RNA sequence: CUCCCCGAAAUGCAUUUAGGUGCAGCGUUGCGUGUUUCUUCCCGGAGGUAGAGCUACUGGAUGGCUGAUGGGCCCUAUCAGGUUACUGACGUCAACCAAACUCCGAAUGCCGGUGAAGUGAGAGCGUGGCAGUGAGACCGUGGGGGAUAAGCUUCAUGGUCGAGAGGGAAACAGCCCAGACCACCGACUAAGGCCCCUAAGCGUGUGCUAAGUGGGAAAGGAUGUGGAGUUGCUUAGACAACCAGGAGGUUGGCUUAGAAGCAGCCACCCUUGAAAGAGUGCGUAAUAGCUCACUGGUCAAGUGAUUCCGCGCCGAUAAUGUAGCGGGGCUCAAGUACACCGCCGAAGUCGUGGCAAUACACAAUGUUCCUGUAAUGGGUGUGUGUUGGGUAGGGGAGCGUCGAGCGGGUGGUGAAGUCGCGGGGUGACCCAGCGGUGGAACCCGUUCGAGUGAGAAU
Number, nucleotide and partner (000 for none) at each position: 001c398002u397003c396004c395005c394006c393007g000008a000009a000010a000011u024012g023013c022014a021015u020016u000017u000018a000019g000020g015021u014022g013023c012024a011025g000026c132027g130028u129029u128030g127031c126032g125033u124034g000035u000036u123037u000038c118039u117040u116041c115042c113043c112044g111045g110046a000047g000048g000049u000050a000051g104052a102053g101054c000055u000056a000057c000058u098059g097060g096061a000062u094063g093064g092065c091066u000067g000068a000069u000070g086071g084072g083073c082074c081075c000076u000077a000078u000079c000080a000081g074082g073083u072084u071085a000086c070087u000088g000089a000090c000091g065092u064093c063094a062095a000096c060097c059098a058099a000100a000101c053102u052103c000104c051105g000106a000107a000108u000109g000110c045111c044112g043113g042114u000115g041116a040117a039118g038119u000120g000121a000122g000123a036124g033125c032126g031127u030128g029129g028130c027131a000132g026133u000134g000135a000136g161137a160138c159139c158140g157141u156142g155143g154144g153145g152146g000147a000148u000149a000150a000151g000152c145153u144154u143155c142156a141157u140158g139159g138160u137161c136162g000163a000164g000165a000166g177167g176168g175169a000170a000171a000172c000173a000174g000175c168176c167177c166178a000179g000180a000181c354182c353183a352184c351185c000186g350187a349188c348189u000190a000191a000192g344193g343194c342195c000196c000197c000198u000199a000200a000201g341202c000203g340204u339205g338206u337207g336208c335209u000210a000211a000212g000213u000214g000215g000216g000217a000218a000219a000220g314221g313222a000223u000224g311225u310226g309227g308228a307229g306230u305231u304232g303233c302234u000235u000236a000237g000238a000239c000240a000241a298242c297243c296244a295245g294246g000247a271248g270249g269250u000251u000252g266253g265254c264255u000256u000257a000258g000259a000260a000261g000262c000263a000264g254265c253266c252267a000268c000269c249270c248271u247272u276273g000274a000275a000276a272277g292278a000279g000280u000281g290282c289283g000284u000285a000286a000287u000288a000289g282290c281291u000292c277293a000294c245295u244296g243297g242298u241299c000300a000301a000302g233303u232304g231305a230306u229307u228308c227309c226310g225311c224312g000313c221314c220315g000316a000317u000318a000319a000320u000321g000322u000323a000324g000325c000326g000327g000328g000329g000330c000331u000332c000333a000334a000335g208336u207337a206338c205339a204340c203341c201342g194343c193344c192345g000346a000347a000348g188349u187350c186351g184352u183353g182354g181355c388356a387357a386358u385359a384360c383361a382362c381363a000364a000365u000366g000367u000368u000369c000370c000371u000372g000373u000374a000375a000376u000377g000378g000379g000380u000381g362382u361383g360384u359385g358386u357387u356388g355389g000390g000391u000392a000393g006394g005395g004396g003397a002398g001399c453400g000401u450402c449403g448404a447405g446406c445407g444408g443409g442410u441411g000412g000413u000414g000415a000416a000417g437418u436419c435420g434421c433422g431423g430424g429425g000426u000427g000428a000429c424430c423431c422432a000433g421434c420435g419436g418437u417438g000439g000440a000441a410442c409443c408444c407445g406446u405447u404448c403449g402450a401451g000452u000453g399454a000455g000456a000457a000458u000
RNA: Bacterial large subunit ribosomal RNA, nucleotides 914 to 1371
Organism: Kocuria coralli